[Rfam]
RNA sequence: CUCGAGUUCAAGGCCAGGGCAGAAGUACUCUUGGCACAGCUGUCAGAUUCCAAAAAAUCUGCAAAUUCUGCU
Numbered sequence: 001c002u003c004g005a006g007u008u009c010a011a012g013g014c015c016a017g018g019g020c021a022g023a024a025g026u027a028c029u030c031u032u033g034g035c036a037c038a039g040c041u042g043u044c045a046g047a048u049u050c051c052a053a054a055a056a057a058u059c060u061g062c063a064a065a066u067u068c069u070g071c072u
Base pairs, nucleotide, nucleotide: 013040014039018072019071020070021069022068023067024066025037026036044061045060046059047058048057049056

Overview
The record is a 72-nucleotide RNA sequence from Alligator mississippiensis, which matches "Mammalian CPEB3 ribozyme" in Rfam. Rfam describes the family as follows. The mammalian CPEB3 ribozyme is a self cleaving RNA located in the second intron of the CPEB3 gene which belongs to a family of genes regulating messenger RNA polyadenylation. The family's consensus secondary structure is taken from published work. Taxonomically the source falls in Alligator (Eukaryota, Metazoa, Deuterostomia, Alligatorinae).